The family of this 100-nucleotide sequence is "Guanidine-I riboswitch aptamer".
[Rfam]
RNA sequence: CAAAUAGAGCGCUAGGGUUCCGGCCGCUGUAGCGGUGACUGGUCCGAGAGCACUCGACCUUUCAGACAAGGUUACACGGCGGGAUAAAAGCCCGGGAGAC
Number, nucleotide and partner (000 for none) at each position: 001c000002a000003a000004a000005u000006a000007g055008a054009g053010c000011g051012c050013u000014a000015g045016g044017g000018u000019u000020c042021c041022g039023g036024c035025c034026g033027c032028u000029g000030u000031a000032g027033c026034g025035g024036u023037g000038a000039c022040u000041g021042g020043u000044c016045c015046g000047a000048g000049a000050g012051c011052a000053c009054u008055c007056g073057a072058c071059c070060u069061u068062u000063c000064a000065g000066a000067c000068a061069a060070g059071g058072u057073u056074a000075c095076a000077c098078g000079g000080c000081g093082g092083g091084a000085u000086a000087a000088a000089a000090g000091c083092c082093c081094g000095g075096g000097a000098g077099a000100c000
Pairs were carried over by alignment from the consensus structure.